[Rfam]
Source information:
Shown here is a 138-nucleotide RNA sequence from Tupaia belangeri, a member of the family "Small Cajal body specific RNA 21". Pairs were carried over by alignment from the consensus structure, which was predicted with RNAalifold. The organism belongs to Tupaia belangeri, within Eukaryota. Rfam 15.1 lists 278 matches to the family in 138 species. The literature on the family includes a 2002 paper in EMBO J by Darzacq et al., "Cajal body-specific small nuclear RNAs: a novel class of 2'-O-methylation and pseudouridylation guide RNAs". It scores 131 bits against the family's covariance model. Rfam describes the family as follows. scaRNAs are a specific class of small nuclear RNAs which localise to the Cajal bodies and guide the modification of RNA polymerase II transcribed spliceosomal RNAs U1, U2, U4, U5 and U12. ACA68 (SCARNA21) is a member of the H/ACA class of snoRNAs that guide the sites of modification of uridines to pseudouridines. This snoRNA was identified by computational screening and its expression in mouse experimentally verified by Northern blot and primer extension analysis. ACA68 is proposed to guide the pseudouridylation of residue U19 in U12 snRNA.
Nucleotides: 138
Stems, first nucleotide, its partner, number of pairs: 002056006015044010067131004072126003078119003087113004
Number, partner (000 for none) and nucleotide at each position: 001000u002056g003055g004054c005053u006052u007051g008000g009000u010000a011000u012000c013000c014000u015044g016043g017042g018041a019040g020039g021038u022037g023036g024035g025000c026000u027000c028000a029000g030000u031000c032000u033000c034000c035024c036023c037022c038021a039020c040019c041018u042017c043016c044015u045000c046000u047000c048000a049000a050000c051007u052006g053005a054004g055003c056002c057000a058000a059000g060000a061000g062000u063000a064000g065000a066000a067131g068130g069129g070128c071000c072126a073125g074124g075000c076000a077000u078119c079118c080117u081000u082000c083000u084000c085000c086000a087113u088112g089111g090110g091000a092000g093000a094000g095000g096000u097000g098000u099000u100000u101000a102000a103000g104000u105000a106000u107000g108000g109000a110090c111089c112088u113087a114000c115000c116000u117080g118079g119078g120000c121000u122000g123000u124074c125073c126072u127000a128070g129069c130068c131067u132000c133000a134000c135000a136000u137000u138000u